RNA sequence: GCACGCUGCUGGGGGAGCUUGGGCAAGCCAGGCUGAGAGGCUUCGACACUUCGGAGCGACCCCUCGUACCUGACCUGGAUAAUGCCAGCGUAGGGACUGUGUAACCGUACAAUC
Numbered sequence: 001g002c003a004c005g006c007u008g009c010u011g012g013g014g015g016a017g018c019u020u021g022g023g024c025a026a027g028c029c030a031g032g033c034u035g036a037g038a039g040g041c042u043u044c045g046a047c048a049c050u051u052c053g054g055a056g057c058g059a060c061c062c063c064u065c066g067u068a069c070c071u072g073a074c075c076u077g078g079a080u081a082a083u084g085c086c087a088g089c090g091u092a093g094g095g096a097c098u099g100u101g102u103a104a105c106c107g108u109a110c111a112a113u114c
Stems, first nucleotide, its partner, number of pairs: 007101003011063004017033005040057007069094004075088004
RNA: TPP riboswitch aptamer (THI element)